[Rfam]
RNA: U4 spliceosomal RNA
RNA sequence: GUCUGUGCGCAGCGGCGGUAUCGUAACCAAUGAGAUUUAUCCGAGGUGCGGUUAUUGCUAGUUGAAAACUUACAUCAAUACUCCGCCAGGAGGACUUGUAAUAUAGUUUACCUGGCAAUUUUGGAAGGCCCUACGGGGG
Number, nucleotide and partner (000 for none) at each position: 001g000002u000003c000004u000005g000006u000007g000008c000009g000010c000011a000012g000013c000014g000015g000016c000017g000018g000019u000020a052021u051022c050023g049024u048025a000026a047027c046028c045029a000030a000031u000032g000033a000034g042035a000036u000037u000038u000039a000040u000041c000042c034043g000044a000045g028046g027047u026048g024049c023050g022051g021052u020053u000054a000055u000056u000057g000058c000059u000060a000061g000062u000063u000064g000065a000066a000067a000068a000069c000070u000071u000072a000073c000074a000075u000076c000077a000078a000079u000080a000081c000082u000083c000084c000085g116086c115087c114088a113089g112090g111091a000092g109093g108094a107095c106096u105097u000098g000099u000100a000101a000102u000103a000104u000105a096106g095107u094108u093109u092110a000111c090112c089113u088114g087115g086116c085117a000118a000119u000120u000121u000122u000123g000124g000125a000126a000127g000128g000129c000130c139131c138132u137133a000134c000135g000136g000137g132138g131139g130